[Rfam]
RNA: Pyrrolysine insertion sequence mttB
RNA sequence: GCAUCGGACAGCAAAAUGCCCGAUAUGCAGGCGGGCUGGGAACAGAUGUGUUCCAAUGUCAUGGCGGGUCUUAGCGGUCUUAACAUGGUGUAUGAGGCCG
Dot-bracket structure: (..........)....................(.(........................).)..............(.((..............)).)..